[Rfam]
RNA sequence: GAUAAAGGAUCUUCUACUAAAACCGCCCACGUCUUGUGGGCAACGUAAAAGUCAGCAUAUCCUGUGCA
Numbered sequence: 001g002a003u004a005a006a007g008g009a010u011c012u013u014c015u016a017c018u019a020a021a022a023c024c025g026c027c028c029a030c031g032u033c034u035u036g037u038g039g040g041c042a043a044c045g046u047a048a049a050a051g052u053c054a055g056c057a058u059a060u061c062c063u064g065u066g067c068a
Base pairs, nucleotide, nucleotide: 011051012050013049015047016046017045026040027039028038029037030036055067056066057065058064
RNA: Bacillaceae-1 RNA
Organism: Bacillus sp. J14TS2